[Rfam]
Description
This 164-nucleotide RNA sequence from Hevea brasiliensis belongs to the Rfam family "MIR530 microRNA precursor family". Rfam 15.1 lists 119 matches to the family in 78 species. Rfam links the family to the GO terms RISC complex and miRNA-mediated post-transcriptional gene silencing. The source organism's lineage runs through Eukaryota, eudicotyledons, Gunneridae, Pentapetalae and Hevea.
RNA sequence: GCCAAUAUGUUGCCUUUAUCUGCAUUUGCACCUGCACCUUACUUUUUUUCCUUUCAAAAGUUCAAGAAUCGAGAUUUUUUUUUCCCUCAUUUGUACAGUAUCAGAAACUUUUGAUUCAAGAGAAGAGAGGUGCAGGUGUGAGUGCAGGUGAAUGCCAUUUUGGU
Numbered sequence: 001g002c003c004a005a006u007a008u009g010u011u012g013c014c015u016u017u018a019u020c021u022g023c024a025u026u027u028g029c030a031c032c033u034g035c036a037c038c039u040u041a042c043u044u045u046u047u048u049u050c051c052u053u054u055c056a057a058a059a060g061u062u063c064a065a066g067a068a069u070c071g072a073g074a075u076u077u078u079u080u081u082u083u084c085c086c087u088c089a090u091u092u093g094u095a096c097a098g099u100a101u102c103a104g105a106a107a108c109u110u111u112u113g114a115u116u117c118a119a120g121a122g123a124a125g126a127g128a129g130g131u132g133c134a135g136g137u138g139u140g141a142g143u144g145c146a147g148g149u150g151a152a153u154g155c156c157a158u159u160u161u162g163g164u
Base pairs, nucleotide, nucleotide: 001164002163003162004161005160007158008157009156012155013154015152016151017150018149019148020147021146022145023144024143025142026141027140028139029138030137031136032135033134034133035132036131037130038129039128